[Rfam]
RNA: Small nucleolar RNA SNORA61
Organism: Pipistrellus kuhlii
RNA sequence: ACCCUCAGUUCCCUUUCCCAUCGGACCUGAACGCCGAUCUUGGUAGCCGUAAAAGGAGGAAAAUUAAUACUGAAGCUGGCCUCAGGGUGCUUGUAAUCUGUGGACUAGUUUCAAACAAGG
Numbered sequence: 001a002c003c004c005u006c007a008g009u010u011c012c013c014u015u016u017c018c019c020a021u022c023g024g025a026c027c028u029g030a031a032c033g034c035c036g037a038u039c040u041u042g043g044u045a046g047c048c049g050u051a052a053a054a055g056g057a058g059g060a061a062a063a064u065u066a067a068u069a070c071u072g073a074a075g076c077u078g079g080c081c082u083c084a085g086g087g088u089g090c091u092u093g094u095a096a097u098c099u100g101u102g103g104a105c106u107a108g109u110u111u112c113a114a115a116c117a118a119g120g
Stems, first nucleotide, its partner, number of pairs: 003059003006055001018046001020044003024039002027036001076108004081103002
Dot-bracket structure: ..((((...........(.(((.((.(........).))..))).)........).)))................((((.((...................)).))))............